[Rfam]
A member of the RNA family "Small nucleolar RNA SNORA58" from Microcebus murinus, 136 nucleotides long.
The organism belongs to Microcebus, within Eukaryota.
For this family Rfam cites "RNomics: an experimental approach that identifies 201 candidates for novel, small, non-messenger RNAs in mouse" (Huttenhofer et al., EMBO J, 2001).
The family has 20 seed sequences and 471 matches in Rfam 15.1.
From the family's description: ACA52 is a member of the H/ACA class of snoRNA that guide the sites of modification of uridines to pseudouridines.
It is one of the family's seed sequences.
RNA sequence: UGGCAUACCCGUAGACCUUGUCUGACUAGGCUAAUGGUCAGGCAGGGGGGACAGUGUAUGCAAGAGUAAUUUGGAGUUCAUGCCAGCUCUAGCCAGCUUAAUCAGUGGCUGGAUAAAUUGCAGUACUCUAACAUUC
Numbered sequence: 001u002g003g004c005a006u007a008c009c010c011g012u013a014g015a016c017c018u019u020g021u022c023u024g025a026c027u028a029g030g031c032u033a034a035u036g037g038u039c040a041g042g043c044a045g046g047g048g049g050g051a052c053a054g055u056g057u058a059u060g061c062a063a064g065a066g067u068a069a070u071u072u073g074g075a076g077u078u079c080a081u082g083c084c085a086g087c088u089c090u091a092g093c094c095a096g097c098u099u100a101a102u103c104a105g106u107g108g109c110u111g112g113a114u115a116a117a118u119u120g121c122a123g124u125a126c127u128c129u130a131a132c133a134u135u136c
Stems, first nucleotide, its partner, number of pairs: 003061006016047009073129004078125001081122003093112005